[Rfam]
RNA: Small nucleolar RNA SNORD60
RNA sequence: GGCCUGUGAUGAAUAUCCUUAUUUUUCUGACACCUCGUAUGAGAGCUGUUCACAGCUUCUGAUUCGAUUGCUUUUUCUGAGGCCU
Numbered sequence: 001g002g003c004c005u006g007u008g009a010u011g012a013a014u015a016u017c018c019u020u021a022u023u024u025u026u027c028u029g030a031c032a033c034c035u036c037g038u039a040u041g042a043g044a045g046c047u048g049u050u051c052a053c054a055g056c057u058u059c060u061g062a063u064u065c066g067a068u069u070g071c072u073u074u075u076u077c078u079g080a081g082g083c084c085u
Stems, first nucleotide, its partner, number of pairs: 001084004045056004